[Rfam]
RNA: Streptococcus sRNA SpF59 (ldcC RNA)
RNA sequence: UGACCGUACCCGGAAUUUAUAACGGGUAUCACAGGCCGGACGGACAGCCGGGUCAAAUGCCGA
Numbered sequence: 001u002g003a004c005c006g007u008a009c010c011c012g013g014a015a016u017u018u019a020u021a022a023c024g025g026g027u028a029u030c031a032c033a034g035g036c037c038g039g040a041c042g043g044a045c046a047g048c049c050g051g052g053u054c055a056a057a058u059g060c061c062g063a
Base pairs, nucleotide, nucleotide: 001055002054003053004052005051006029007028008027009026010025011024